[Rfam]
Shown here is a 68-nucleotide RNA sequence from Gottschalkia acidurici, a member of the family "RAGATH-18 RNA".
NCBI's taxonomy places the organism under Bacteria, Bacillati, Gottschalkiaceae, Gottschalkia, Gottschalkia acidurici.
Pairs were carried over by alignment from the consensus structure, which is taken from published work.
Rfam classes the family as a small RNA.
Actinobacteria, Firmicutes, Fusobacteria, Thermotogae (1 example).
RNA sequence: CCUAUGGAAUGCCGUAUCAAACGAAAGUAGUAAGUAGUAUCACGAAAUCGGACAUUGUGAAGUAGGAA
Numbered sequence: 001c002c003u004a005u006g007g008a009a010u011g012c013c014g015u016a017u018c019a020a021a022c023g024a025a026a027g028u029a030g031u032a033a034g035u036a037g038u039a040u041c042a043c044g045a046a047a048u049c050g051g052a053c054a055u056u057g058u059g060a061a062g063u064a065g066g067a068a
Base pairs, nucleotide, nucleotide: 001066002065003064004063005062009055010054011053013051022050023049024048030043031042